RNA sequence: CUGGUGUAACCCGAAAAACCACAAAAGAGUAGGGA
Numbered sequence: 001c002u003g004g005u006g007u008a009a010c011c012c013g014a015a016a017a018a019c020c021a022c023a024a025a026a027g028a029g030u031a032g033g034g035a
Stems, first nucleotide, its partner, number of pairs: 002021004010034003
A member of the RNA family "DUF805b RNA", 35 nucleotides long. The sequence is in the family's curated seed alignment. Clan: DUF805 clan. The family's RNA type in Rfam is cis-regulatory element.